[Rfam]
RNA sequence: CGGGCGGCUGUUAAGACUUGCAGUGAUGUUUAACUCCUCUCCACGUGAACAUCACAGCAAGUCUGUGCUGCUUCCCGUC
Dot-bracket structure: .............(((((((..((((((((((.............))))))))))..)))))))...............
Numbered sequence: 001c002g003g004g005c006g007g008c009u010g011u012u013a014a015g016a017c018u019u020g021c022a023g024u025g026a027u028g029u030u031u032a033a034c035u036c037c038u039c040u041c042c043a044c045g046u047g048a049a050c051a052u053c054a055c056a057g058c059a060a061g062u063c064u065g066u067g068c069u070g071c072u073u074c075c076c077g078u079c
Stems, first nucleotide, its partner, number of pairs: 014064007023055010

The family of this 79-nucleotide sequence from Eptesicus fuscus is "mir-499 microRNA precursor family". Taxonomically the source falls in Eptesicus (Eukaryota, Amniota, Theria, Eutheria). The literature on the family includes a 2006 paper in Nucleic Acids Res by Mineno et al., "The expression profile of microRNAs in mouse embryos".